[Rfam]
RNA sequence: GGGCACCUUCGGGGGCCUAUAACCAUGGCCACCUCCGGGGGGCUGAACACAGGCUCCCUCGCAGGGGCCUCAAGCAGACGGAAGACAGAAA
Number, nucleotide and partner (000 for none) at each position: 001g018002g017003g016004c015005a000006c014007c013008u012009u000010c000011g000012g008013g007014g006015g004016c003017c002018u001019a000020u000021a000022a000023c000024c000025a000026u000027g069028g068029c067030c066031a000032c064033c000034u000035c000036c000037g000038g000039g000040g000041g000042g000043c000044u000045g000046a000047a000048c000049a000050c000051a000052g000053g000054c000055u000056c000057c000058c000059u000060c000061g000062c000063a000064g032065g000066g030067g029068c028069c027070u000071c000072a000073a000074g000075c000076a000077g000078a000079c000080g000081g000082a000083a000084g000085a000086c000087a000088g000089a000090a000091a000
RNA: L2-Alphaproteobacteria ribosomal protein leader
Organism: Profundibacterium mesophilum